[Rfam]
A member of the RNA family "mir-252 microRNA precursor family" from Caenorhabditis elegans, 78 nucleotides long. For this family Rfam cites "Direct sequencing and expression analysis of a large number of miRNAs in Aedes aegypti and a multi-species survey of novel mosquito miRNAs" (Li et al., BMC Genomics, 2009).

RNA sequence: UUUCAGUUAUAAGUAGUAGUGCCGCAGGUAACCGCCAGUCUAAAAGGCUUACCUACUGCCUUCUGCUUAAAAUUGAAA
Numbered sequence: 001u002u003u004c005a006g007u008u009a010u011a012a013g014u015a016g017u018a019g020u021g022c023c024g025c026a027g028g029u030a031a032c033c034g035c036c037a038g039u040c041u042a043a044a045a046g047g048c049u050u051a052c053c054u055a056c057u058g059c060c061u062u063c064u065g066c067u068u069a070a071a072a073u074u075g076a077a078a
Stems, first nucleotide, its partner, number of pairs: 001078007010069007018061002024056001026054005